The family of this 73-nucleotide RNA is "nadA riboswitch". It is annotated as a small RNA. It is one of the family's seed sequences. A reference for the family is Huang et al. (2020), "Structure and ligand binding of the ADP-binding domain of the NAD(+) riboswitch", RNA.
RNA sequence: GCUUUCAACAUCCCCGUUCCAGUCUGAGCGGAGUGCGCGCUGAGCGCGCCUGCCCAUGCUUGGAGCUGAAGGC
Numbered sequence: 001g002c003u004u005u006c007a008a009c010a011u012c013c014c015c016g017u018u019c020c021a022g023u024c025u026g027a028g029c030g031g032a033g034u035g036c037g038c039g040c041u042g043a044g045c046g047c048g049c050c051u052g053c054c055c056a057u058g059c060u061u062g063g064a065g066c067u068g069a070a071g072g073c
Base pairs, nucleotide, nucleotide: 001073002072003071004070005069006068007067016066017065018064019063020062021061022060024058026055028053029052030051031050